[Rfam]
RNA sequence: AUUCCACUUCGGGGCAGGGUGUAAUUCCCGACCGACGGUAAUGAACAAAUGUUCUAAGUCCGUGAGCCGUUUGUGUUUUUUUAAAUGGUUGACCUGGUGAAAAUCCAGGACCGACAGUUAAAGUCUGGAUGGGAGAAGAGGUCG
Numbered sequence: 001a002u003u004c005c006a007c008u009u010c011g012g013g014g015c016a017g018g019g020u021g022u023a024a025u026u027c028c029c030g031a032c033c034g035a036c037g038g039u040a041a042u043g044a045a046c047a048a049a050u051g052u053u054c055u056a057a058g059u060c061c062g063u064g065a066g067c068c069g070u071u072u073g074u075g076u077u078u079u080u081u082u083a084a085a086u087g088g089u090u091g092a093c094c095u096g097g098u099g100a101a102a103a104u105c106c107a108g109g110a111c112c113g114a115c116a117g118u119u120a121a122a123g124u125c126u127g128g129a130u131g132g133g134a135g136a137a138g139a140g141g142u143c144g
Stems, first nucleotide, its partner, number of pairs: 004141002007138004017029003031124002033113002035063004058111002066089003093109005115127003
This 144-nucleotide sequence from Ornithinibacillus hominis belongs to the Rfam family "FMN riboswitch aptamer (RFN element)". The family's consensus secondary structure is taken from published work. The source organism's lineage runs through Bacteria, Bacillota, Caryophanales, Bacillaceae and Ornithinibacillus.